[Rfam]
RNA: Small Cajal body specific RNA 3
Nucleotides: 134
Base pairs, nucleotide, nucleotide: 004061005060006059009055010054011053012052022048023047024046025045027043028042029041030040031039076127077126078125079124084118086116087115088114090112091111092110093109094108095107096106
Number, partner (000 for none) and nucleotide at each position: 001000u002000g003000u004061g005060g006059a007000a008000g009055c010054u011053g012052a013000c014000u015000a016000a017000c018000u019000c020000g021000u022048c023047g024046u025045g026000u027043g028042c029041c030040g031039g032000u033000g034000a035000a036000g037000u038000g039031u040030c041029g042028g043027c044000c045025c046024a047023c048022g049000c050000u051000a052012u053011c054010a055009g056000g057000c058000u059006u060005c061004c062000u063000a064000u065000a066000g067000u068000a069000a070000u071000g072000u073000a074000c075000u076127g077126g078125a079124g080000a081000u082000c083000u084118c085000u086116g087115u088114c089000u090112g091111g092110u093109u094108c095107u096106g097000u098000g099000c100000a101000g102000c103000c104000c105000c106096c107095g108094g109093a110092g111091c112090c113000g114088g115087a116086u117000c118084g119000u120000u121000c122000c123000c124079c125078u126077c127076c128000a129000u130000a131000c132000a133000u134000c